[Rfam]
Shown here is a 540-nucleotide sequence from Citrus x clementina, a member of the family "Group I catalytic intron". Its family is annotated with Group I intron splicing in the Gene Ontology. Group I catalytic introns are large self-splicing ribozymes. They catalyse their own excision from mRNA, tRNA and rRNA precursors in a wide range of organisms. The core secondary structure consists of 9 paired regions (P1-P9). Taxonomically the source falls in Citrus (Eukaryota, Tracheophyta, Mesangiospermae, Gunneridae). The family's consensus secondary structure is taken from published work.
RNA sequence: CUACGGACUUAAUUGGAUUGAGCCUUAGUAUGGAAACUUACUAAGUGAUAACUUUCAAAUUCAGAGAAACCCAGGAAUUAAAAAUGGGUAAUCCUGAGCCAAAUCCUCUUCUCUUUUCCCAGAACAAACAGGGGUUCAGAAAGCGAAAAAGGGGGAUAGGGGCAGAGACUCAAUGGAAGCUGUUCUAACAAUGGAGUUGACUGCCCUUUUUGGUAAAGAAAAAAGAAAGUAAAAUGAAUGCUUCUAUCGAAUAUCGAAACUCGAUAAAGGAUGAAGGAUAAGGGUAUAUAGACUAUGGAUACGCAGCGAAAAACUAACUCAAAAAUCACAACCAAAUACGUAUUUCUUUUUAUGAAAAAGAAAAAGAAAAGAAUUGUUAUUGUUAUGAAUCGAUUCUAAGUUGAAGAAAGAAUCGAAUAUUCCCGGCUCAAAUCAUUCACUCCACCUCCAUGGUCUGAUCGAUCCUUUCUUUUGACUUUUGAAGAACUGAUUAAUCGGACGAGAAUAAAGAUAGAGUCCCAUUCUACAUGUCAAUAUCAA
Numbered sequence: 001c002u003a004c005g006g007a008c009u010u011a012a013u014u015g016g017a018u019u020g021a022g023c024c025u026u027a028g029u030a031u032g033g034a035a036a037c038u039u040a041c042u043a044a045g046u047g048a049u050a051a052c053u054u055u056c057a058a059a060u061u062c063a064g065a066g067a068a069a070c071c072c073a074g075g076a077a078u079u080a081a082a083a084a085u086g087g088g089u090a091a092u093c094c095u096g097a098g099c100c101a102a103a104u105c106c107u108c109u110u111c112u113c114u115u116u117u118c119c120c121a122g123a124a125c126a127a128a129c130a131g132g133g134g135u136u137c138a139g140a141a142a143g144c145g146a147a148a149a150a151g152g153g154g155g156a157u158a159g160g161g162g163c164a165g166a167g168a169c170u171c172a173a174u175g176g177a178a179g180c181u182g183u184u185c186u187a188a189c190a191a192u193g194g195a196g197u198u199g200a201c202u203g204c205c206c207u208u209u210u211u212g213g214u215a216a217a218g219a220a221a222a223a224a225g226a227a228a229g230u231a232a233a234a235u236g237a238a239u240g241c242u243u244c245u246a247u248c249g250a251a252u253a254u255c256g257a258a259a260c261u262c263g264a265u266a267a268a269g270g271a272u273g274a275a276g277g278a279u280a281a282g283g284g285u286a287u288a289u290a291g292a293c294u295a296u297g298g299a300u301a302c303g304c305a306g307c308g309a310a311a312a313a314c315u316a317a318c319u320c321a322a323a324a325a326u327c328a329c330a331a332c333c334a335a336a337u338a339c340g341u342a343u344u345u346c347u348u349u350u351u352a353u354g355a356a357a358a359a360g361a362a363a364a365a366g367a368a369a370a371g372a373a374u375u376g377u378u379a380u381u382g383u384u385a386u387g388a389a390u391c392g393a394u395u396c397u398a399a400g401u402u403g404a405a406g407a408a409a410g411a412a413u414c415g416a417a418u419a420u421u422c423c424c425g426g427c428u429c430a431a432a433u434c435a436u437u438c439a440c441u442c443c444a445c446c447u448c449c450a451u452g453g454u455c456u457g458a459u460c461g462a463u464c465c466u467u468u469c470u471u472u473u474g475a476c477u478u479u480u481g482a483a484g485a486a487c488u489g490a491u492u493a494a495u496c497g498g499a500c501g502a503g504a505a506u507a508a509a510g511a512u513a514g515a516g517u518c519c520c521a522u523u524c525u526a527c528a529u530g531u532c533a534a535u536a537u538c539a540a
Stems, first nucleotide, its partner, number of pairs: 005024001008022006030038001050181001052179003056175002061097004066092001070088004099160001104155003112148001114146002165519001167518005183505004526537001528535002